Rfam assigns this 61-nucleotide RNA sequence from Cryptosporangium arvum to the family "Actino-pnp RNA".
Lineage of the source: Bacteria > Actinomycetota > Actinomycetes > Cryptosporangium > Cryptosporangium arvum.

RNA sequence: GCCGGUCCUCGGUAGUACCCACUUGUGGAGCUCCUACAAGUCGGUUCGAUCGAAGACCGGC
Numbered sequence: 001g002c003c004g005g006u007c008c009u010c011g012g013u014a015g016u017a018c019c020c021a022c023u024u025g026u027g028g029a030g031c032u033c034c035u036a037c038a039a040g041u042c043g044g045u046u047c048g049a050u051c052g053a054a055g056a057c058c059g060g061c
Base pairs, nucleotide, nucleotide: 001061002060003059004058005057006056007055009053010052011051012050013049017045018044019043021041022040023039024038025037026036027035028034